A member of the RNA family "A. fumigatus sRNA Afu_309" from Aspergillus aculeatus, 350 nucleotides long.
On this family, see Jochl et al., Nucleic Acids Res 2008: "Small ncRNA transcriptome analysis from Aspergillus fumigatus suggests a novel mechanism for regulation of protein synthesis".
Rfam classes the family as a small RNA.
The family has 10 seed sequences and 663 matches in Rfam 15.1.
It scores 239 bits against the family's covariance model.
RNA sequence: UUCUCUCUAACACAUCACGGAUCUGUGUCUCAGCGAUCCUGUUCACGAGGCUGAAGAGAGGCAGCUUGCUGUUUUUCUUCUUCUCUUGUGUUUCGGUUGAUUACUGGACAGUUCGACGACUUAAGGAGCCAUCACUUUUGUUUUGUUGGUGGUCUUUGGCAUCCGGUCGACAGAUCUCAGAUUAAAGGUCGGCACUGGGUGUUCGCUCUGGUCUUGAGCUCCCUUGUCUCCGGACUUGGUGAGCUCGGCUGGAGUCCCCGGCUUGCUGACGGCGUCAUAUUCCUACUCUCUUUACCGAUCAUGGCCGUCGGCCGAUGAGGUUAGGGAAUAACCAUGACCAGCCAACAUUC
Numbered sequence: 001u002u003c004u005c006u007c008u009a010a011c012a013c014a015u016c017a018c019g020g021a022u023c024u025g026u027g028u029c030u031c032a033g034c035g036a037u038c039c040u041g042u043u044c045a046c047g048a049g050g051c052u053g054a055a056g057a058g059a060g061g062c063a064g065c066u067u068g069c070u071g072u073u074u075u076u077c078u079u080c081u082u083c084u085c086u087u088g089u090g091u092u093u094c095g096g097u098u099g100a101u102u103a104c105u106g107g108a109c110a111g112u113u114c115g116a117c118g119a120c121u122u123a124a125g126g127a128g129c130c131a132u133c134a135c136u137u138u139u140g141u142u143u144u145g146u147u148g149g150u151g152g153u154c155u156u157u158g159g160c161a162u163c164c165g166g167u168c169g170a171c172a173g174a175u176c177u178c179a180g181a182u183u184a185a186a187g188g189u190c191g192g193c194a195c196u197g198g199g200u201g202u203u204c205g206c207u208c209u210g211g212u213c214u215u216g217a218g219c220u221c222c223c224u225u226g227u228c229u230c231c232g233g234a235c236u237u238g239g240u241g242a243g244c245u246c247g248g249c250u251g252g253a254g255u256c257c258c259c260g261g262c263u264u265g266c267u268g269a270c271g272g273c274g275u276c277a278u279a280u281u282c283c284u285a286c287u288c289u290c291u292u293u294a295c296c297g298a299u300c301a302u303g304g305c306c307g308u309c310g311g312c313c314g315a316u317g318a319g320g321u322u323a324g325g326g327a328a329u330a331a332c333c334a335u336g337a338c339c340a341g342c343c344a345a346c347a348u349u350c
Base pairs, nucleotide, nucleotide: 019177020176021175022174023173024172025171026170027109028108029107031106032105033104035102036101037100038099039096040095041094044090045089047086049084050083053080054079055078056077057076058075059074060073061072062071063070064069117169118168119167120166121165124157125156126155128153129152130151131150132149188266189265195261196260197259198258199257210250211249212248213247216246217245218244219243220242221241222239223238271343272342273341274338275337276336277335278334287327288326289325290324291323294321295320296319303313304312305311306310